[Rfam]
A member of the RNA family "MIR162_1 microRNA precursor family" from Anisodus acutangulus, 102 nucleotides long. Gene Ontology terms of the family: RISC complex and miRNA-mediated post-transcriptional gene silencing. The base pairs follow the family's consensus structure, which was predicted with RNAalifold. The family has 36 seed sequences and 270 matches in Rfam 15.1. Lineage of the source: Eukaryota > Mesangiospermae > eudicotyledons > Gunneridae > Anisodus. The family is grouped with related families in Rfam's "MIR167 microRNA precursor clan". The match comes from Rfam's covariance-model search (90 bits).
RNA sequence: GUUGAUGACACUGGAGGCAGCGGUUCAUCGAUCUGUUCCCUGAAUACUGAUAUACAGCAAGAGGAAAUCGAUCGAUAAACCUCUGCAUCCAGUGCUUAACCC
Number, nucleotide and partner (000 for none) at each position: 001g000002u000003u000004g000005a000006u000007g000008a000009c000010a000011c000012u000013g090014g089015a088016g000017g000018c085019a084020g083021c000022g081023g080024u079025u078026c000027a076028u075029c074030g073031a072032u071033c070034u000035g000036u067037u066038c064039c000040c000041u000042g000043a000044a000045u000046a000047c000048u000049g000050a000051u000052a000053u000054a000055c000056a000057g000058c000059a000060a000061g000062a000063g000064g038065a000066a037067a036068u000069c000070g033071a032072u031073c030074g029075a028076u027077a000078a025079a024080c023081c022082u000083c020084u019085g018086c000087a000088u015089c014090c013091a000092g000093u000094g000095c000096u000097u000098a000099a000100c000101c000102c000